Source information
A member of the RNA family "Lysine riboswitch aptamer" from Photobacterium aphoticum, 174 nucleotides long. NCBI's taxonomy places the organism under Bacteria, Pseudomonadati, Gammaproteobacteria, Vibrionaceae, Photobacterium. The match comes from Rfam's covariance-model search (118 bits). Pairs were carried over by alignment from the consensus structure, which is taken from published work.
[Rfam]
RNA sequence: UUAAUCAGUAGAGGCGCGCUGCCUAUCAGUAACCGUGCGGAGGAUGAUCCCGAUGAUGCCGGAGAAAGGAGUCAGCGCCGAAGUCACUUGAGCCGUCAUGCUCAGUGGCUGGGUCUGUGUCGAAUAGGCACAGAACUGCCAUAGUAUUAUGUCCUAUGGAGCGCUACCUGAAGG
Number, nucleotide and partner (000 for none) at each position: 001u000002u000003a000004a000005u000006c000007a000008g167009u166010a165011g164012a000013g000014g000015c000016g078017c077018g076019c075020u074021g073022c000023c071024u070025a000026u000027c000028a000029g000030u000031a000032a000033c062034c061035g060036u000037g059038c058039g057040g000041a000042g000043g000044a000045u000046g000047a000048u000049c000050c000051c000052g000053a000054u000055g000056a000057u039058g038059c037060c035061g034062g033063a000064g000065a000066a000067a000068g000069g000070a024071g023072u000073c021074a020075g019076c018077g017078c016079c000080g000081a000082a110083g109084u108085c107086a106087c000088u105089u104090g103091a102092g101093c100094c000095g000096u000097c000098a000099u000100g093101c092102u091103c090104a089105g088106u086107g085108g084109c083110u082111g137112g136113g000114u134115c133116u132117g131118u130119g129120u128121c127122g000123a000124a000125u000126a000127g121128g120129c119130a118131c117132a116133g115134a114135a000136c112137u111138g000139c159140c158141a157142u156143a155144g154145u000146a000147u000148u000149a000150u000151g000152u000153c000154c144155u143156a142157u141158g140159g139160a000161g000162c000163g000164c011165u010166a009167c008168c000169u000170g000171a000172a000173g000174g000